[Rfam]
RNA sequence: AAUUUUUUAACUAUUCAAAAAUCUUAAUAAAAAUAUUAUCCACAUUUAAUUCAGAAAGGACGAGUUGUAAUGAAAUUCUAUACGACGGCAAAUAAACCAAAAACCGACAACAACAUAUUAGUAAUUUUAUUACGCUCAGAAGGACUCGAACAACAGUAACUUGAAAUUUACUGUAUGGUUUAAGUCCUAUUUCUGAUUGAAUGGGACUCGUAGU
Numbered sequence: 001a002a003u004u005u006u007u008u009a010a011c012u013a014u015u016c017a018a019a020a021a022u023c024u025u026a027a028u029a030a031a032a033a034u035a036u037u038a039u040c041c042a043c044a045u046u047u048a049a050u051u052c053a054g055a056a057a058g059g060a061c062g063a064g065u066u067g068u069a070a071u072g073a074a075a076u077u078c079u080a081u082a083c084g085a086c087g088g089c090a091a092a093u094a095a096a097c098c099a100a101a102a103a104c105c106g107a108c109a110a111c112a113a114c115a116u117a118u119u120a121g122u123a124a125u126u127u128u129a130u131u132a133c134g135c136u137c138a139g140a141a142g143g144a145c146u147c148g149a150a151c152a153a154c155a156g157u158a159a160c161u162u163g164a165a166a167u168u169u170a171c172u173g174u175a176u177g178g179u180u181u182a183a184g185u186c187c188u189a190u191u192u193c194u195g196a197u198u199g200a201a202u203g204g205g206a207c208u209c210g211u212a213g214u
Base pairs, nucleotide, nucleotide: 024213025212026211043203044202045201046200047199048198049197050196052195053194057136058135061121063119064118065117067116068115071112141188142187143186144185145184150180151177152176153174154173155172156171157170158169159168
This 214-nucleotide sequence from Mammaliicoccus stepanovicii belongs to the Rfam family "Listeria sRNA rli60". The base pairs follow the family's consensus structure, which was predicted with RNAalifold. NCBI's taxonomy places the organism under Bacteria, Bacillati, Bacilli, Staphylococcaceae, Mammaliicoccus.